Source information:
Rfam assigns this 60-nucleotide sequence from Alphacoronavirus pusilli to the family "Coronavirus 3' UTR pseudoknot". Pairs were carried over by alignment from the consensus structure, which is taken from published work. A reference for the family is Williams et al. (1999), "A phylogenetically conserved hairpin-type 3' untranslated region pseudoknot functions in coronavirus RNA replication", J Virol. Coronaviruses are plus-strand RNA viruses with ~30kb genomes. The 3' UTR region of coronavirus genomes contains a conserved ~55nt pseudoknot structure which has been shown to be necessary for viral genome replication. The mechanism of cis-regulation is unclear, but this element is postulated to function in the plus-strand. The seed alignment was expanded in 2020 by Eric Nawrocki.
RNA sequence: CUACUUAUACUAAAAUGUAAGCCUGUAUUUAAGCAGUAUAAGCAAUACUUAAAUAUAUUA
Numbered sequence: 001c002u003a004c005u006u007a008u009a010c011u012a013a014a015a016u017g018u019a020a021g022c023c024u025g026u027a028u029u030u031a032a033g034c035a036g037u038a039u040a041a042g043c044a045a046u047a048c049u050u051a052a053a054u055a056u057a058u059u060a
Stems, first nucleotide, its partner, number of pairs: 005041006026055008
Dot-bracket structure: ....[[[[[[...............((((((((..]]]]]]......)))))))).....